[Rfam]
RNA sequence: UAGAGGGGACAGGGUUUGGAGCCCCUCCCUGAGCCCAGGGUAACUCUAAAAGUGGAGGGGAA
Numbered sequence: 001u002a003g004a005g006g007g008g009a010c011a012g013g014g015u016u017u018g019g020a021g022c023c024c025c026u027c028c029c030u031g032a033g034c035c036c037a038g039g040g041u042a043a044c045u046c047u048a049a050a051a052g053u054g055g056a057g058g059g060g061a062a
Base pairs, nucleotide, nucleotide: 008041010039012036013035014034015033016031018029019028022060023059024058025057026056027055